[Rfam]
RNA sequence: CAAGAAAGAUGAUGAAAUCAGAAAAUCUUAGGACACCUUCUGACACAGUUAUGACAAUGGCUGUGUAUGAGAAAAGAUUUUACUGUUUCUGAUUUUAUU
Numbered sequence: 001c002a003a004g005a006a007a008g009a010u011g012a013u014g015a016a017a018u019c020a021g022a023a024a025a026u027c028u029u030a031g032g033a034c035a036c037c038u039u040c041u042g043a044c045a046c047a048g049u050u051a052u053g054a055c056a057a058u059g060g061c062u063g064u065g066u067a068u069g070a071g072a073a074a075a076g077a078u079u080u081u082a083c084u085g086u087u088u089c090u091g092a093u094u095u096u097a098u099u
Base pairs, nucleotide, nucleotide: 002098004096005095006094007093041047042046

Source information:
This 99-nucleotide RNA from Rhododendron simsii belongs to the Rfam family "Small nucleolar RNA snoR31/Z110/Z27". From the family's description: This family contains several related snoRNAs including R31, Z27 and Z110. The family's consensus secondary structure was predicted with PFOLD. NCBI's taxonomy places the organism under Eukaryota, Embryophyta, Pentapetalae, Ericoideae, Rhododendron. It scores 49 bits against the family's covariance model.